Overview:
Plant small nucleolar RNA R71: a 107-nucleotide RNA from Lathyrus oleraceus. Rfam classes the family as a C/D-box small nucleolar RNA. The match comes from Rfam's covariance-model search (54 bits). The family has 25 seed sequences and 278,378 matches in Rfam 15.1. Its family is annotated with RNA processing and nucleolus in the Gene Ontology.

RNA sequence: AGACCGUGAUGUGGACAAAGCCUCAUCAUGUCUUUGUAUCUCUCCCAAGCUUCAAAAAGUGAUUCAUUAUAUUUUUGUUUAAACCCGUUUAUUUGGGCUCUUAGCAU
Number, nucleotide and partner (000 for none) at each position: 001a107002g000003a000004c104005c000006g101007u000008g000009a000010u000011g000012u000013g000014g000015a000016c000017a000018a000019a000020g000021c000022c000023u000024c000025a000026u000027c000028a000029u000030g000031u000032c000033u000034u000035u000036g000037u000038a000039u000040c000041u000042c000043u000044c000045c000046c000047a000048a000049g000050c000051u000052u000053c000054a000055a000056a000057a074058a073059g000060u071061g000062a000063u000064u000065c000066a000067u000068u000069a000070u000071a060072u000073u058074u057075u000076u000077g000078u000079u000080u000081a000082a000083a000084c000085c000086c000087g000088u000089u000090u000091a000092u000093u000094u000095g000096g000097g000098c000099u000100c000101u006102u000103a000104g004105c000106a000107u001